[Rfam]
RNA sequence: CAACCUGCGAGGGACGGUCUAAAGGAAGCCUGACGCAAAACUGCGAGCUGAUGAACAAGAACAUCAUAUGAGGCGUAGGCUGGAGGCGAGUUGGCACAAGACAACGAAGCCGUGUGAUCUAACGGCCACCGUAAAUGAUGCAGUUGCGCAGGGACAGUUCAUGCU
Numbered sequence: 001c002a003a004c005c006u007g008c009g010a011g012g013g014a015c016g017g018u019c020u021a022a023a024g025g026a027a028g029c030c031u032g033a034c035g036c037a038a039a040a041c042u043g044c045g046a047g048c049u050g051a052u053g054a055a056c057a058a059g060a061a062c063a064u065c066a067u068a069u070g071a072g073g074c075g076u077a078g079g080c081u082g083g084a085g086g087c088g089a090g091u092u093g094g095c096a097c098a099a100g101a102c103a104a105c106g107a108a109g110c111c112g113u114g115u116g117a118u119c120u121a122a123c124g125g126c127c128a129c130c131g132u133a134a135a136u137g138a139u140g141c142a143g144u145u146g147c148g149c150a151g152g153g154a155c156a157g158u159u160c161a162u163g164c165u
Base pairs, nucleotide, nucleotide: 001016004013005012006011028165030163035158036157041151042150043149044148045147046145047144048143049142050141062140063139064138065137066136067135073132074131075130078127079126080125081124083123085111086110087109090105091104092103093102
RNA: Group II catalytic intron D1-D4-3